Ascomycota telomerase RNA: a 208-nucleotide part of an RNA from Fusarium duplospermum. Rfam classes the family as a non-coding RNA gene. NCBI's taxonomy places the organism under Eukaryota, Ascomycota, leotiomyceta, Nectriaceae, Fusarium solani species complex.
RNA sequence: UCCCUCACAGUUCUCCGACUCACGUUUUCCGCAAGGAAUGUCUAUCGCAGGCCCCCUUCCCAUCUGGUUAACCGCAAUAUGCCGCUCUCGAACCUGUAUCAGGAUCUCGUUAUGCCGCAGCUGGAUUAUUGUGGAUGCACCGCGACCUGUAGAGGUUGUACCAGGGCAGAAGGGUAACGCGUUUCGGAACUUAACCCUAAGAAGAUAU
Numbered sequence: 001u002c003c004c005u006c007a008c009a010g011u012u013c014u015c016c017g018a019c020u021c022a023c024g025u026u027u028u029c030c031g032c033a034a035g036g037a038a039u040g041u042c043u044a045u046c047g048c049a050g051g052c053c054c055c056c057u058u059c060c061c062a063u064c065u066g067g068u069u070a071a072c073c074g075c076a077a078u079a080u081g082c083c084g085c086u087c088u089c090g091a092a093c094c095u096g097u098a099u100c101a102g103g104a105u106c107u108c109g110u111u112a113u114g115c116c117g118c119a120g121c122u123g124g125a126u127u128a129u130u131g132u133g134g135a136u137g138c139a140c141c142g143c144g145a146c147c148u149g150u151a152g153a154g155g156u157u158g159u160a161c162c163a164g165g166g167c168a169g170a171a172g173g174g175u176a177a178c179g180c181g182u183u184u185c186g187g188a189a190c191u192u193a194a195c196c197c198u199a200a201g202a203a204g205a206u207a208u
Base pairs, nucleotide, nucleotide: 009191010190011189015187016186017185018184
Dot-bracket structure: ........(((...((((.....................................................................................................................................................................)))).))).................

Rfam 15.1 lists 475 matches to the family in 456 species. On this family, see Qi et al., Nucleic Acids Res 2013: "The common ancestral core of vertebrate and fungal telomerase RNAs". Its Rfam clan is "Telomerase clan".